[Rfam]
RNA sequence: AGCUUUGCGCAGUGGCAGUAUCGUAGCCAAUGAGGUUUAUCCGAGGCGCGAUUAUUGCUAAUUGAAACAGAAACUCCCUAAAUUGUUUUGUAGCUAACAUAACUUAGUAACAAUCCUACCUAGGU
Number, nucleotide and partner (000 for none) at each position: 001a000002g000003c000004u000005u000006u000007g000008c000009g000010c000011a000012g000013u000014g000015g000016c000017a000018g000019u000020a052021u051022c050023g049024u048025a000026g047027c046028c045029a000030a000031u000032g000033a000034g042035g041036u000037u000038u000039a000040u000041c035042c034043g000044a000045g028046g027047c026048g024049c023050g022051a021052u020053u000054a000055u000056u000057g000058c000059u000060a000061a000062u000063u000064g000065a000066a000067a000068c000069a000070g000071a000072a000073a000074c000075u000076c000077c000078c107079u106080a000081a104082a000083u102084u101085g100086u099087u000088u097089u096090g095091u000092a000093g000094c000095u090096a089097a088098c000099a086100u085101a084102a083103c000104u081105u000106a079107g078108u000109a000110a000111c000112a000113a000114u000115c124116c123117u122118a000119c000120c000121u000122a117123g116124g115125u000
RNA: U4 spliceosomal RNA
Organism: Tupaia belangeri